[Rfam]
RNA sequence: GUGGACGGCGCGGGGCGCCGGAGGCGAGAACCGGCUGAGAUGCACCCGUGGAACCUGCCAAGGUAGUGCUUGCGAAGGGAACGCCAGUGACUCUGGAA
Numbered sequence: 001g002u003g004g005a006c007g008g009c010g011c012g013g014g015g016c017g018c019c020g021g022a023g024g025c026g027a028g029a030a031c032c033g034g035c036u037g038a039g040a041u042g043c044a045c046c047c048g049u050g051g052a053a054c055c056u057g058c059c060a061a062g063g064u065a066g067u068g069c070u071u072g073c074g075a076a077g078g079g080a081a082c083g084c085c086a087g088u089g090a091c092u093c094u095g096g097a098a
Stems, first nucleotide, its partner, number of pairs: 007085004011048004016042001017035005054078003059072004